Shown here is a 101-nucleotide sequence from Carassius auratus, a member of the family "Z30 small nucleolar RNA". The literature on the family includes a 2002 paper in Mol Cell Biol by Galardi et al., "Purified box C/D snoRNPs are able to reproduce site-specific 2'-O-methylation of target RNA in vitro". The family's consensus secondary structure was predicted with PFOLD. Rfam classes the family as a C/D-box small nucleolar RNA. Lineage of the source: Eukaryota > Chordata > Actinopterygii > Otophysi > Carassius.
[Rfam]
RNA sequence: AGCAAUGAUGAGUGAAAGAACUUAACUGACUUGGUAUUGCUGCCCUUUGGCAUCAUUUGACCAAGAUCUGAUUGACUAAGUUUAAUCUUCUCUCUGAGCUG
Numbered sequence: 001a002g003c004a005a006u007g008a009u010g011a012g013u014g015a016a017a018g019a020a021c022u023u024a025a026c027u028g029a030c031u032u033g034g035u036a037u038u039g040c041u042g043c044c045c046u047u048u049g050g051c052a053u054c055a056u057u058u059g060a061c062c063a064a065g066a067u068c069u070g071a072u073u074g075a076c077u078a079a080g081u082u083u084a085a086u087c088u089u090c091u092c093u094c095u096g097a098g099c100u101g
Stems, first nucleotide, its partner, number of pairs: 002099002039054001041052002